[Rfam]
RNA: mir-320 microRNA precursor family
RNA sequence: GUUUGGCCUUGCCUUCUCUUCCCAGUGCUUCCUGGAGUUGGGAAAAGCUGGGUUGAGGGGGCAUUUAAAAAAUAAU
Numbered sequence: 001g002u003u004u005g006g007c008c009u010u011g012c013c014u015u016c017u018c019u020u021c022c023c024a025g026u027g028c029u030u031c032c033u034g035g036a037g038u039u040g041g042g043a044a045a046a047g048c049u050g051g052g053u054u055g056a057g058g059g060g061g062c063a064u065u066u067a068a069a070a071a072a073u074a075a076u
Base pairs, nucleotide, nucleotide: 014059015058016057017056018055021052022051023050024049025048029044030043031042032041033040034039